[Rfam]
RNA sequence: UCAGACGCGACGGGAGAAUUCGGGAUUCGUCCCGGUGCCGAAGGAGCAACCGCCCCGGUAAACUCUCAGGCAAACAGGACCGCCGCGCCGAU
Number, nucleotide and partner (000 for none) at each position: 001u000002c000003a000004g000005a000006c087007g086008c085009g084010a000011c082012g081013g080014g000015a000016g000017a000018a000019u000020u035021c034022g033023g032024g000025a000026u000027u000028c000029g000030u000031c000032c023033c022034g021035g020036u000037g071038c070039c069040g067041a066042a000043g000044g065045a064046g063047c000048a000049a000050c058051c057052g000053c000054c000055c000056c000057g051058g050059u000060a000061a000062a000063c046064u045065c044066u041067c040068a000069g039070g038071c037072a000073a000074a000075c000076a000077g000078g000079a000080c013081c012082g011083c000084c009085g008086c007087g006088c000089c000090g000091a000092u000

Annotation
The record is a 92-nucleotide RNA from Boseongicola aestuarii, which matches "Glycine riboswitch aptamer" in Rfam. The organism belongs to Boseongicola, within Bacteria. Pairs were carried over by alignment from the consensus structure. Rfam describes the family as follows. This family represents the bacterial glycine riboswitch.